A member of the RNA family "ASpks TB sRNA" from Actinomadura verrucosospora, 75 nucleotides long. Rfam classes the family as an antisense RNA.
[Rfam]
RNA sequence: UUUCACCGAGCCCAGCCACAGCGGACGGUCCUCAGGCCGGUCCUGCCCAUAGGUGGCGAGCAACGCCUGCGCCUC
Numbered sequence: 001u002u003u004c005a006c007c008g009a010g011c012c013c014a015g016c017c018a019c020a021g022c023g024g025a026c027g028g029u030c031c032u033c034a035g036g037c038c039g040g041u042c043c044u045g046c047c048c049a050u051a052g053g054u055g056g057c058g059a060g061c062a063a064c065g066c067c068u069g070c071g072c073c074u075c
Base pairs, nucleotide, nucleotide: 016024017023031071033069038065039064043060044059047056048055049054